[Rfam]
RNA: mir-1000 microRNA precursor family
RNA sequence: GGCUGUGAUAUUGUCCUGUCACAGCAGUACUGUUCUUUUGGUCCUACUGCUGUCUCGGGACAUAGCCACAGAC
Numbered sequence: 001g002g003c004u005g006u007g008a009u010a011u012u013g014u015c016c017u018g019u020c021a022c023a024g025c026a027g028u029a030c031u032g033u034u035c036u037u038u039u040g041g042u043c044c045u046a047c048u049g050c051u052g053u054c055u056c057g058g059g060a061c062a063u064a065g066c067c068a069c070a071g072a073c
Stems, first nucleotide, its partner, number of pairs: 003071004012062007022052008